nhaA-I RNA: a 49-nucleotide RNA. From the family's description: Acidobacteria, Alphaproteobacteria, Betaproteobacteria and Gammaproteobacteria, Verrucomicrobia, cand. division NC10. Pairs were carried over by alignment from the consensus structure, which is taken from published work. It is annotated as a riboswitch. It is one of the family's seed sequences.

RNA sequence: GGGUGCAGCGAUCUCCGCUGCAGGUGCCGUGGGGGCCGGGCCGCCUCCG
Numbered sequence: 001g002g003g004u005g006c007a008g009c010g011a012u013c014u015c016c017g018c019u020g021c022a023g024g025u026g027c028c029g030u031g032g033g034g035g036c037c038g039g040g041c042c043g044c045c046u047c048c049g
Stems, first nucleotide, its partner, number of pairs: 005021006030049007